RNA sequence: UCAGCAUUCAUGAAAAGGUCAAGGCAUCCUACGAAAUAAACCUUGAGUGAGAUCUAUAGGCAGUCUGG
Numbered sequence: 001u002c003a004g005c006a007u008u009c010a011u012g013a014a015a016a017g018g019u020c021a022a023g024g025c026a027u028c029c030u031a032c033g034a035a036a037u038a039a040a041c042c043u044u045g046a047g048u049g050a051g052a053u054c055u056a057u058a059g060g061c062a063g064u065c066u067g068g
Stems, first nucleotide, its partner, number of pairs: 001068004006064003011059001014057001016055003019046006027031001
Dot-bracket structure: ((((.(((..(..(.(((((((((..(...).........))))))......))).).)..)))))))
Annotation
Shown here is a 68-nucleotide RNA from Tursiops truncatus, a member of the family "MAT2A 3'UTR stem loop E". Rfam 15.1 lists 337 matches to the family in 190 species. The family's RNA type in Rfam is cis-regulatory element. Rfam's curators put it in the seed alignment.